RNA sequence: UCCGCGUAACCGAACGGUUACUGUAUGGUGGCUUGGCUAGUUAGUUACGCUAGUCUAGGUUACGAGGGCGCU
Numbered sequence: 001u002c003c004g005c006g007u008a009a010c011c012g013a014a015c016g017g018u019u020a021c022u023g024u025a026u027g028g029u030g031g032c033u034u035g036g037c038u039a040g041u042u043a044g045u046u047a048c049g050c051u052a053g054u055c056u057a058g059g060u061u062a063c064g065a066g067g068g069c070g071c072u
Stems, first nucleotide, its partner, number of pairs: 001068003005064002008061004016033007035055007
The record is a 72-nucleotide RNA from Coxiella burnetii, which matches "DUF3800-IX RNA" in Rfam. Lineage of the source: Bacteria > Pseudomonadota > Legionellales > Coxiella > Coxiella burnetii. By type it is a small RNA.